[Rfam]
RNA sequence: UUGCAUUAAAUGAUAUACUAGGACUACCCCUCAAGUCAUUAUUUCAGCUGAUACAAUCACGAGCUUCUGAUGCG
Numbered sequence: 001u002u003g004c005a006u007u008a009a010a011u012g013a014u015a016u017a018c019u020a021g022g023a024c025u026a027c028c029c030c031u032c033a034a035g036u037c038a039u040u041a042u043u044u045c046a047g048c049u050g051a052u053a054c055a056a057u058c059a060c061g062a063g064c065u066u067c068u069g070a071u072g073c074g
Stems, first nucleotide, its partner, number of pairs: 002074004
Small nucleolar RNA snoR60: a 74-nucleotide sequence from Camellia sinensis. The family's consensus secondary structure was predicted with PFOLD. The family's RNA type in Rfam is C/D-box small nucleolar RNA. Its Rfam clan is "SNORD101 clan". Rfam links the family to the GO terms RNA processing and nucleolus. Rfam 15.1 lists 1,133 matches to the family in 227 species. For this family Rfam cites "Fibrillarin genes encode both a conserved nucleolar protein and a novel small nucleolar RNA involved in ribosomal RNA methylation in Arabidopsis thaliana" (Barneche et al., J Biol Chem, 2000).